[Rfam]
RNA: Plastid-psbA-1 3UTR RNA
RNA sequence: GUUGAAGCUCCAUCUACAAACGGAUAAGAUAAGACUUUUAUCUUAGUCUAAGUGUAUACGAGUUUUUGAUUUGAAAGUAAAGGAGCAAUAAUCAGACUCUUGUUUUAUCAAGAGUGUUGAUUAUUGCUCCUUUUUU
Numbered sequence: 001g002u003u004g005a006a007g008c009u010c011c012a013u014c015u016a017c018a019a020a021c022g023g024a025u026a027a028g029a030u031a032a033g034a035c036u037u038u039u040a041u042c043u044u045a046g047u048c049u050a051a052g053u054g055u056a057u058a059c060g061a062g063u064u065u066u067u068g069a070u071u072u073g074a075a076a077g078u079a080a081a082g083g084a085g086c087a088a089u090a091a092u093c094a095g096a097c098u099c100u101u102g103u104u105u106u107a108u109c110a111a112g113a114g115u116g117u118u119g120a121u122u123a124u125u126g127c128u129c130c131u132u133u134u135u136u
Stems, first nucleotide, its partner, number of pairs: 009024003013020001079133013093119003097114005